[Rfam]
RNA sequence: AAGGCUGCGUGUAACUGGCGAGGGUGCGGAUCAACCGCAAGGGAGCACGUAGUAUCGAUAGCCGCUCGCCUGGGCAAAGGUA
Numbered sequence: 001a002a003g004g005c006u007g008c009g010u011g012u013a014a015c016u017g018g019c020g021a022g023g024g025u026g027c028g029g030a031u032c033a034a035c036c037g038c039a040a041g042g043g044a045g046c047a048c049g050u051a052g053u054a055u056c057g058a059u060a061g062c063c064g065c066u067c068g069c070c071u072g073g074g075c076a077a078a079g080g081u082a
Stems, first nucleotide, its partner, number of pairs: 004053009015042002017070005026038004059077001061075003

Shown here is an 82-nucleotide RNA sequence from Gracilibacillus thailandensis, a member of the family "ZMP/ZTP riboswitch aptamer (pfl RNA motif)".